[Rfam]
RNA sequence: GGUUCAUGAUGACACAGGACCUUGUCUGAACUUCAUGAUCUCAAAACAUGAGCUUGGAUAUGUCACUGAAAUC
Numbered sequence: 001g002g003u004u005c006a007u008g009a010u011g012a013c014a015c016a017g018g019a020c021c022u023u024g025u026c027u028g029a030a031c032u033u034c035a036u037g038a039u040c041u042c043a044a045a046a047c048a049u050g051a052g053c054u055u056g057g058a059u060a061u062g063u064c065a066c067u068g069a070a071a072u073c
Stems, first nucleotide, its partner, number of pairs: 001073004
A member of the RNA family "Small nucleolar RNA SNORD107" from Myotis lucifugus, 73 nucleotides long.
NCBI's taxonomy places the organism under Eukaryota, Eumetazoa, Yangochiroptera, Vespertilionidae, Myotis.
A reference for the family is Runte et al. (2001), "The IC-SNURF-SNRPN transcript serves as a host for multiple small nucleolar RNA species and as an antisense RNA for UBE3A", Hum Mol Genet.
The family has 13 seed sequences and 144 matches in Rfam 15.1.
The family's RNA type in Rfam is C/D-box small nucleolar RNA.